RNA sequence: UCGCUGCUGUGUUUUAUGGCUUUCUAUUCCUAUGUGAUUUUUUCUGACAUGUCACAUAGGGUCGAAAGCCAUUGGGUACAGAGUGGG
Numbered sequence: 001u002c003g004c005u006g007c008u009g010u011g012u013u014u015u016a017u018g019g020c021u022u023u024c025u026a027u028u029c030c031u032a033u034g035u036g037a038u039u040u041u042u043u044c045u046g047a048c049a050u051g052u053c054a055c056a057u058a059g060g061g062u063c064g065a066a067a068g069c070c071a072u073u074g075g076g077u078a079c080a081g082a083g084u085g086g087g
Base pairs, nucleotide, nucleotide: 002086005083007081008080009079010078011077012076013075014074016072017071018070019069020068021067022066023065028061029060030059031058032057033056034055035054036053037052
Annotation
A member of the RNA family "mir-135 microRNA precursor family" from Mastacembelus armatus, 87 nucleotides long. Its family is annotated with gene silencing by miRNA and RISC complex in the Gene Ontology. It scores 71 bits against the family's covariance model. A reference for the family is Lagos-Quintana et al. (2002), "Identification of tissue-specific microRNAs from mouse", Curr Biol. The organism belongs to Mastacembelus, within Eukaryota. The family has 88 seed sequences and 2,125 matches in Rfam 15.1.